[Rfam]
RNA sequence: AGCGGGGAGAAGGGGGCUGGGUCCCUCCACGGACUGCAAAUCCGCUCGGCCUGGACGUAACCCGUCCGGGGGUUGGUUCGAUUCCAACUCUCCCCU
Numbered sequence: 001a002g003c004g005g006g007g008a009g010a011a012g013g014g015g016g017c018u019g020g021g022u023c024c025c026u027c028c029a030c031g032g033a034c035u036g037c038a039a040a041u042c043c044g045c046u047c048g049g050c051c052u053g054g055a056c057g058u059a060a061c062c063c064g065u066c067c068g069g070g071g072g073u074u075g076g077u078u079c080g081a082u083u084c085c086a087a088c089u090c091u092c093c094c095c096u
Base pairs, nucleotide, nucleotide: 001096002095004093005092006091007090008089009088012027013026014025015024016023028048030044031043032042033041050070051069052068053067054066073087074086075085076084
About this RNA
Rfam assigns this 96-nucleotide sequence from Carboxydocella thermautotrophica to the family "Selenocysteine transfer RNA". Taxonomically the source falls in Carboxydocella thermautotrophica (Bacteria, Bacillati, Clostridia, Eubacteriales). Pairs were carried over by alignment from the consensus structure, which is taken from published work. The family has 109 seed sequences and 4,211 matches in Rfam 15.1.